[Rfam]
A member of the RNA family "6S / SsrS RNA" from Liquorilactobacillus vini, 189 nucleotides long. E. coli 6S RNA was the first non coding RNA to be sequenced, but its function was unknown until recently. It consists of 184 nucleotides that fold into an extended hairpin structure with a large single-stranded internal bulge. The 6S RNA specifically associates with RNA polymerase holoenzyme containing the sigma70 specificity factor. The organism belongs to Liquorilactobacillus vini, within Bacteria.
RNA sequence: AUAAAUCUGGAAUGUACGCGUUAUCUCAACAUGUAAGGUUGACCGAACACCUAACAUUUUGGUUUCUGGAAUAGUUUAUUAAUAACAGGCCUACCUUGAUAGGAAGUUAGCGGUAAAUCUACUAGAUACCACCUGCUUUGACAGCGGGUUCAACUACAGAGAUGAUUAACGGCAUUAAACGGAUGCGGG
Numbered sequence: 001a002u003a004a005a006u007c008u009g010g011a012a013u014g015u016a017c018g019c020g021u022u023a024u025c026u027c028a029a030c031a032u033g034u035a036a037g038g039u040u041g042a043c044c045g046a047a048c049a050c051c052u053a054a055c056a057u058u059u060u061g062g063u064u065u066c067u068g069g070a071a072u073a074g075u076u077u078a079u080u081a082a083u084a085a086c087a088g089g090c091c092u093a094c095c096u097u098g099a100u101a102g103g104a105a106g107u108u109a110g111c112g113g114u115a116a117a118u119c120u121a122c123u124a125g126a127u128a129c130c131a132c133c134u135g136c137u138u139u140g141a142c143a144g145c146g147g148g149u150u151c152a153a154c155u156a157c158a159g160a161g162a163u164g165a166u167u168a169a170c171g172g173c174a175u176u177a178a179a180c181g182g183a184u185g186c187g188g189g
Stems, first nucleotide, its partner, number of pairs: 002187001005184005012175004017171002037155002040152003043148002061130003065126005074118006085107002090103004